Rfam assigns this 87-nucleotide sequence from Pseudoneobacillus rhizosphaerae to the family "BsrC". The match comes from Rfam's covariance-model search (75 bits). The family has 29 seed sequences and 572 matches in Rfam 15.1. NCBI's taxonomy places the organism under Bacteria, Bacillati, Bacilli, Bacillaceae, Pseudoneobacillus. Rfam's curators write: The 301 nucleotide sequence from Kouji Nakamura has been trimmed to a highly conserved ~85 nucleotide long core to form this family.
[Rfam]
RNA sequence: UAAAUCUUAUACGACGUUAGCCCUACCUCUCUAACAUCCUUACGGCUCCUAAGCCGAUCCAGUGUGAAUAAGUCCUUAUAAAAACAA
Numbered sequence: 001u002a003a004a005u006c007u008u009a010u011a012c013g014a015c016g017u018u019a020g021c022c023c024u025a026c027c028u029c030u031c032u033a034a035c036a037u038c039c040u041u042a043c044g045g046c047u048c049c050u051a052a053g054c055c056g057a058u059c060c061a062g063u064g065u066g067a068a069u070a071a072g073u074c075c076u077u078a079u080a081a082a083a084a085c086a087a
Stems, first nucleotide, its partner, number of pairs: 035066002039062002043056005